Rfam assigns this 92-nucleotide sequence from Isachenkonia alkalipeptolytica to the family "c-di-GMP-I riboswitch aptamer". From the family's description: GEMM was predicted in a large-scale screen for bacterial structured RNA regulatory elements. Genes associated with GEMM are involved in a diverse array of functions, including chemotaxis regulation, signal transduction, secretion and chitin. Lineage of the source: Bacteria > Clostridia > Eubacteriales > Clostridiaceae > Isachenkonia.
RNA sequence: AUUUACCAUGGGCAAACUUACCGAAAGGUAAGGACGCAAAGCCAAGGGUCUUCAUUCCUUUGUGAAAAGGAAUAUGACAGCCGGUUGCACAU
Numbered sequence: 001a002u003u004u005a006c007c008a009u010g011g012g013c014a015a016a017c018u019u020a021c022c023g024a025a026a027g028g029u030a031a032g033g034a035c036g037c038a039a040a041g042c043c044a045a046g047g048g049u050c051u052u053c054a055u056u057c058c059u060u061u062g063u064g065a066a067a068a069g070g071a072a073u074a075u076g077a078c079a080g081c082c083g084g085u086u087g088c089a090c091a092u
Stems, first nucleotide, its partner, number of pairs: 012037002017032006040086004046082002048078003055072007